[Rfam]
RNA sequence: GAAAGGCUGCGCGGAUGCGCAGCUGGAGGGCAGAGGAUAUUGACCCGAUAUCCGCAGCCGUCCCAGUUAGG
Numbered sequence: 001g002a003a004a005g006g007c008u009g010c011g012c013g014g015a016u017g018c019g020c021a022g023c024u025g026g027a028g029g030g031c032a033g034a035g036g037a038u039a040u041u042g043a044c045c046c047g048a049u050a051u052c053c054g055c056a057g058c059c060g061u062c063c064c065a066g067u068u069a070g071g
Stems, first nucleotide, its partner, number of pairs: 005024008025063003029059003
This 71-nucleotide RNA sequence belongs to the Rfam family "S4-Clostridia ribosomal protein leader". It is one of the family's seed sequences. On this family, see Eckert and Weinberg, BMC Microbiol 2020: "Discovery of 20 novel ribosomal leader candidates in bacteria and archaea". The family is grouped with related families in Rfam's "Ribosomal Protein S4 Leader clan". By type it is a cis-regulatory leader.